[Rfam]
RNA sequence: CUGCCAGUAGCUCAGUUGGAUAGAGCACCUGCCUUCUAAGCAGGCGGUCGGGGGUUCGACUCCCUCCUGGCAGG
Numbered sequence: 001c002u003g004c005c006a007g008u009a010g011c012u013c014a015g016u017u018g019g020a021u022a023g024a025g026c027a028c029c030u031g032c033c034u035u036c037u038a039a040g041c042a043g044g045c046g047g048u049c050g051g052g053g054g055u056u057c058g059a060c061u062c063c064c065u066c067c068u069g070g071c072a073g074g
Base pairs, nucleotide, nucleotide: 001073002072003071004070005069006068007067010026011025012024013023028044029043030042031041032040050066051065052064053063054062
RNA: tRNA